[Rfam]
This 58-nucleotide sequence from Panagrellus redivivus belongs to the Rfam family "mir-7957 microRNA precursor family".
The family's consensus secondary structure was predicted with RNAalifold.
It is one of the family's seed sequences.
RNA sequence: AAUUUGUCCUUGGUCACAUUACUGUUUUUUGUUAUCUGUAAUUUGCCGAGGACGAAAU
Numbered sequence: 001a002a003u004u005u006g007u008c009c010u011u012g013g014u015c016a017c018a019u020u021a022c023u024g025u026u027u028u029u030u031g032u033u034a035u036c037u038g039u040a041a042u043u044u045g046c047c048g049a050g051g052a053c054g055a056a057a058u
Base pairs, nucleotide, nucleotide: 003056004055005054006053007052008051009050010049011048012047013046014045019041020040021039022038